[Rfam]
RNA sequence: AAACGUCUUCAAGGUCGGGUGAAAUUCCCAAUCGGUGGUUACAGCCCACUACCCAAUGAAAAUUGGUUGAGAUGGUGAAAUCCCAUUGCCGACAGUAAAGUCUGGUAUAAAGAAGAUCAGU
Numbered sequence: 001a002a003a004c005g006u007c008u009u010c011a012a013g014g015u016c017g018g019g020u021g022a023a024a025u026u027c028c029c030a031a032u033c034g035g036u037g038g039u040u041a042c043a044g045c046c047c048a049c050u051a052c053c054c055a056a057u058g059a060a061a062a063u064u065g066g067u068u069g070a071g072a073u074g075g076u077g078a079a080a081u082c083c084c085a086u087u088g089c090c091g092a093c094a095g096u097a098a099a100g101u102c103u104g105g106u107a108u109a110a111a112g113a114a115g116a117u118c119a120g121u
Stems, first nucleotide, its partner, number of pairs: 005117006017029003031101002033091002035049004044089002053066002071087005093104003